Notes:
Archaeal RNase P: a 311-nucleotide RNA sequence from Caldisphaera lagunensis. It is annotated as a ribozyme. A reference for the family is Frank and Pace (1998), "Ribonuclease P: unity and diversity in a tRNA processing ribozyme", Annu Rev Biochem. Rfam describes the family as follows. Ribonuclease P (RNase P) is a ubiquitous endoribonuclease, found in archaea, bacteria and eukarya as well as chloroplasts and mitochondria. Its Rfam clan is "RNaseP clan".

RNA sequence: AGGCCAGGAUAGCGGCUCACGGGCCUUAAUAGGCCUGAGGAAACACCGCCCUCCCAGUGGCAGCUAGGCCUCAGGCUGAGGUGAUACCUCAGGCAACGGCACAGAAACGACACGGCCUCCAUUGUAUGAUUAUGAUACAGAAAGAUCUAUCCAGCAAUGGAUAGAUAGUAAUCUGUUGAAGACAAUGGAGGAUGCGUUGAAACGGCCGACCCUAGCGGAGCAAGGGUGAGGGCGAUGAGGAGCCACGCGAGCUCUCUAAUUUCCGCAGAGUCGAAUGCCGCAAUACAGAAGGCGGGUUAUUAUCCUGGCCU
Numbered sequence: 001a002g003g004c005c006a007g008g009a010u011a012g013c014g015g016c017u018c019a020c021g022g023g024c025c026u027u028a029a030u031a032g033g034c035c036u037g038a039g040g041a042a043a044c045a046c047c048g049c050c051c052u053c054c055c056a057g058u059g060g061c062a063g064c065u066a067g068g069c070c071u072c073a074g075g076c077u078g079a080g081g082u083g084a085u086a087c088c089u090c091a092g093g094c095a096a097c098g099g100c101a102c103a104g105a106a107a108c109g110a111c112a113c114g115g116c117c118u119c120c121a122u123u124g125u126a127u128g129a130u131u132a133u134g135a136u137a138c139a140g141a142a143a144g145a146u147c148u149a150u151c152c153a154g155c156a157a158u159g160g161a162u163a164g165a166u167a168g169u170a171a172u173c174u175g176u177u178g179a180a181g182a183c184a185a186u187g188g189a190g191g192a193u194g195c196g197u198u199g200a201a202a203c204g205g206c207c208g209a210c211c212c213u214a215g216c217g218g219a220g221c222a223a224g225g226g227u228g229a230g231g232g233c234g235a236u237g238a239g240g241a242g243c244c245a246c247g248c249g250a251g252c253u254c255u256c257u258a259a260u261u262u263c264c265g266c267a268g269a270g271u272c273g274a275a276u277g278c279c280g281c282a283a284u285a286c287a288g289a290a291g292g293c294g295g296g297u298u299a300u301u302a303u304c305c306u307g308g309c310c311u
Base pairs, nucleotide, nucleotide: 001311002310003309005307006306007305008304009303010302011301012281013280014279015278016277020037021036022035023034024033042298043297044296046295047294048293049292050291051220052219053218054217057246058245059244060243061242063216064215065214066213067212068076069075070074077091078090079089080088081087092211093210097208098207099206100205113196114195116191117190118189119188120187121186122185123184137176138175139174140173141172224264225263226262229255230254231253232252233251